[Rfam]
RNA sequence: UGUUAUUGUUUCUAGGGUUCCGCGAUUAAACAAUCGGACUGGUCCGAGAGAAACACCACGGAUAAUCGUGUUCACGGAGGGACAAAAGCCCGGGAGGA
Numbered sequence: 001u002g003u004u005a006u007u008g009u010u011u012c013u014a015g016g017g018u019u020c021c022g023c024g025a026u027u028a029a030a031c032a033a034u035c036g037g038a039c040u041g042g043u044c045c046g047a048g049a050g051a052a053a054c055a056c057c058a059c060g061g062a063u064a065a066u067c068g069u070g071u072u073c074a075c076g077g078a079g080g081g082a083c084a085a086a087a088g089c090c091c092g093g094g095a096g097g098a
Base pairs, nucleotide, nucleotide: 007055008054009053010052011051012050015045016044020042021041022039023036024035025034026033027032057070058069059068060067061066073093075096079091080090081089
Dot-bracket structure: ......((((((..((...((((((((....)))))..).)).))....)))))).(((((....)))))..(.[...(((.......))).)..]..